Rfam assigns this 220-nucleotide RNA sequence from Sorghum bicolor to the family "MIR6217 microRNA precursor family". It scores 133 bits against the family's covariance model. Gene Ontology terms of the family: miRNA-mediated post-transcriptional gene silencing and RISC complex.
[Rfam]
RNA sequence: UAGCUACAAAAUAACUUAUUCUAUAGCCACUUUGAGUUAUGAUAAUUACUACAUUAGUUUACGAGAUUAUAGUAACUCUAUACUAAGUGGUUGACUAUAAUAUUAUGGUAAAUAUCUCUGUUUAACCCAACUGUCUUAAAUAUAUAUAGAUAUUAUCGUAAAUUAGUAUAUAAAAUUAUUGUAAAUGGACAUGACUAUAGAAUAACUUAUUCUGUAGCUG
Numbered sequence: 001u002a003g004c005u006a007c008a009a010a011a012u013a014a015c016u017u018a019u020u021c022u023a024u025a026g027c028c029a030c031u032u033u034g035a036g037u038u039a040u041g042a043u044a045a046u047u048a049c050u051a052c053a054u055u056a057g058u059u060u061a062c063g064a065g066a067u068u069a070u071a072g073u074a075a076c077u078c079u080a081u082a083c084u085a086a087g088u089g090g091u092u093g094a095c096u097a098u099a100a101u102a103u104u105a106u107g108g109u110a111a112a113u114a115u116c117u118c119u120g121u122u123u124a125a126c127c128c129a130a131c132u133g134u135c136u137u138a139a140a141u142a143u144a145u146a147u148a149g150a151u152a153u154u155a156u157c158g159u160a161a162a163u164u165a166g167u168a169u170a171u172a173a174a175a176u177u178a179u180u181g182u183a184a185a186u187g188g189a190c191a192u193g194a195c196u197a198u199a200g201a202a203u204a205a206c207u208u209a210u211u212c213u214g215u216a217g218c219u220g
Base pairs, nucleotide, nucleotide: 001220002219003218004217005216006215007214008213010211011210012209013208014207016205017204018203019202020201021200022199023198024197025196026195028193029192032189033188037184038183039182040181041180042179043178044177045176046175047174050170051169053167054166055165056164057163058162059161060160061159062158065157066156067155069153070152071151073148074147079140081138082137087134088133089132090131091130092129101124102123107117108116